About this RNA
A member of the RNA family "Small nucleolar RNA SNORA28" from Ursus americanus, 113 nucleotides long. It is annotated as an H/ACA-box small nucleolar RNA. Its family is annotated with nucleolus and RNA processing in the Gene Ontology. The family's consensus secondary structure was predicted with RNAfold.
RNA sequence: AAGCAACAGUCUGUGGCAGAUGAUCGAACUUGUCUGACACAAUAUGAGCAAGGUCUAACCUAUUUCAGUGUUUUCUCCUCCGUGAGACCAGCUGUUACAUAGACUUAAACAGU
Dot-bracket structure: .........((((((.((((((........)))))).))))....))...(((((((...(.(..((((....((((......))))...))))..).)))))))).......
Numbered sequence: 001a002a003g004c005a006a007c008a009g010u011c012u013g014u015g016g017c018a019g020a021u022g023a024u025c026g027a028a029c030u031u032g033u034c035u036g037a038c039a040c041a042a043u044a045u046g047a048g049c050a051a052g053g054u055c056u057a058a059c060c061u062a063u064u065u066c067a068g069u070g071u072u073u074u075c076u077c078c079u080c081c082g083u084g085a086g087a088c089c090a091g092c093u094g095u096u097a098c099a100u101a102g103a104c105u106u107a108a109a110c111a112g113u
Stems, first nucleotide, its partner, number of pairs: 010047002012041004017036006051106007061099001063097001066094004074087004
A reference for the family is Huttenhofer et al. (2001), "RNomics: an experimental approach that identifies 201 candidates for novel, small, non-messenger RNAs in mouse", EMBO J.
From the family's description: ACA28 is a member of the H/ACA class of snoRNA that guide the sites of modification of uridines to pseudouridines.